[Rfam]
RNA sequence: UUCCUCAGUUCUUGGCGCUCUGAUGUUAUUACAAUCGUCAGAAGUGUAUGCACAACUGUAAGGUAGAGUAGGCUGUACCAAGUGGUGUAGCACUCGAAUCACCUUCGGUGUCAGGUCAUCUAAUAUCACCUGAUAUCAUCCUCUGGAUUCGAAACAUUU
Numbered sequence: 001u002u003c004c005u006c007a008g009u010u011c012u013u014g015g016c017g018c019u020c021u022g023a024u025g026u027u028a029u030u031a032c033a034a035u036c037g038u039c040a041g042a043a044g045u046g047u048a049u050g051c052a053c054a055a056c057u058g059u060a061a062g063g064u065a066g067a068g069u070a071g072g073c074u075g076u077a078c079c080a081a082g083u084g085g086u087g088u089a090g091c092a093c094u095c096g097a098a099u100c101a102c103c104u105u106c107g108g109u110g111u112c113a114g115g116u117c118a119u120c121u122a123a124u125a126u127c128a129c130c131u132g133a134u135a136u137c138a139u140c141c142u143c144u145g146g147a148u149u150c151g152a153a154a155c156a157u158u159u
Stems, first nucleotide, its partner, number of pairs: 003063003006058005015047004020041006072091008094152007107137002111133006
RNA: Nematode snoRNA ceN88